[Rfam]
RNA sequence: CAGCGUUCUCAGGGCGGGGUGAAAUUCCCCACCGGCGGUGAUGGCGACUUGAUCGCACAAGCCCGCGAGCGCCUGGCUUCCCCGUGAAGCCAGGGUCAGCAGACCUCGGUGAGACUCCGGGGCCGACGGUCACAGUCCGGAUGAAAGAGAGCGCGA
Numbered sequence: 001c002a003g004c005g006u007u008c009u010c011a012g013g014g015c016g017g018g019g020u021g022a023a024a025u026u027c028c029c030c031a032c033c034g035g036c037g038g039u040g041a042u043g044g045c046g047a048c049u050u051g052a053u054c055g056c057a058c059a060a061g062c063c064c065g066c067g068a069g070c071g072c073c074u075g076g077c078u079u080c081c082c083c084g085u086g087a088a089g090c091c092a093g094g095g096u097c098a099g100c101a102g103a104c105c106u107c108g109g110u111g112a113g114a115c116u117c118c119g120g121g122g123c124c125g126a127c128g129g130u131c132a133c134a135g136u137c138c139g140g141a142u143g144a145a146a147g148a149g150a151g152c153g154c155g156a
Base pairs, nucleotide, nucleotide: 003154004153005152006151007150008149009148010147017029018028019027031136032135033125034124035066036065037064038063061123062122069100070099104121105120107119108118109117127139128138129137
RNA: FMN riboswitch aptamer (RFN element)